[Rfam]
RNA sequence: CAUUUCCUUCGGGGUCGGGUGAAAUUCCCAACCGGCGGUGAUGCUUGAAGCGGCUGAACUGCCGAGGCAAGCUAAGUCCGUGACCCGAUAUGCCGAGUGUUUCUGUUCGGUGUAGCGGUGGACUCGGUGUGAAUCCGAGACCGACAGUACAGUCUGGAUGGGAGAAGGAAAAC
Numbered sequence: 001c002a003u004u005u006c007c008u009u010c011g012g013g014g015u016c017g018g019g020u021g022a023a024a025u026u027c028c029c030a031a032c033c034g035g036c037g038g039u040g041a042u043g044c045u046u047g048a049a050g051c052g053g054c055u056g057a058a059c060u061g062c063c064g065a066g067g068c069a070a071g072c073u074a075a076g077u078c079c080g081u082g083a084c085c086c087g088a089u090a091u092g093c094c095g096a097g098u099g100u101u102u103c104u105g106u107u108c109g110g111u112g113u114a115g116c117g118g119u120g121g122a123c124u125c126g127g128u129g130u131g132a133a134u135c136c137g138a139g140a141c142c143g144a145c146a147g148u149a150c151a152g153u154c155u156g157g158a159u160g161g162g163a164g165a166a167g168g169a170a171a172a173c
Stems, first nucleotide, its partner, number of pairs: 003171008017029003031153002033143002035081004076141002085118002123139005145156003
Rfam assigns this 173-nucleotide RNA from Paenibacillus swuensis to the family "FMN riboswitch aptamer (RFN element)".
The family's consensus secondary structure is taken from published work.
The organism belongs to Paenibacillus, within Bacteria.
Its family is annotated with FMN binding in the Gene Ontology.